[Rfam]
RNA sequence: CUUGAUCAGACAAACCGAAUUCAGAGCACCCUCGGGAAGGCGGCGCCCCUUCAGGCUGCCUCACCGAGGCU
Number, nucleotide and partner (000 for none) at each position: 001c000002u000003u028004g027005a000006u025007c024008a000009g021010a020011c000012a000013a000014a000015c000016c000017g000018a000019a000020u010021u009022c000023a000024g007025a006026g000027c004028a003029c000030c000031c000032u000033c000034g000035g000036g052037a051038a050039g049040g048041c000042g000043g000044c000045g000046c000047c000048c040049c039050u038051u037052c036053a000054g000055g000056c000057u000058g000059c000060c000061u000062c000063a000064c000065c000066g000067a000068g000069g000070c000071u000
About this RNA:
Rfam assigns this 71-nucleotide RNA from Mycobacterium parmense to the family "Actinobacteria sRNA Ms_AS-8". For this family Rfam cites "Identification of small RNAs in Mycobacterium smegmatis using heterologous Hfq" (Li et al., RNA, 2013). The match comes from Rfam's covariance-model search (49 bits). The base pairs follow the family's consensus structure. Lineage of the source: Bacteria > Bacillati > Actinomycetes > Mycobacteriaceae > Mycobacterium simiae complex. By type it is a small RNA.